[Rfam]
RNA sequence: GCACUGAAGGUAAGAGUUGCAGGAAACUGAACUCUUUCUUUGUCACUUUGUUAGUAACAGUUUCAGGAGUUCAGUUUCCUCCAACAUCUUAUCUUCGGCGC
Numbered sequence: 001g002c003a004c005u006g007a008a009g010g011u012a013a014g015a016g017u018u019g020c021a022g023g024a025a026a027c028u029g030a031a032c033u034c035u036u037u038c039u040u041u042g043u044c045a046c047u048u049u050g051u052u053a054g055u056a057a058c059a060g061u062u063u064c065a066g067g068a069g070u071u072c073a074g075u076u077u078c079c080u081c082c083a084a085c086a087u088c089u090u091a092u093c094u095u096c097g098g099c100g101c
Stems, first nucleotide, its partner, number of pairs: 004098005011091004016085004021080001023078008032069005

This 101-nucleotide RNA sequence from Oryza sativa belongs to the Rfam family "MIR2275 microRNA precursor family". The match comes from Rfam's covariance-model search (61 bits). Taxonomically the source falls in Oryza sativa (Eukaryota, Embryophyta, Poales, Oryzeae).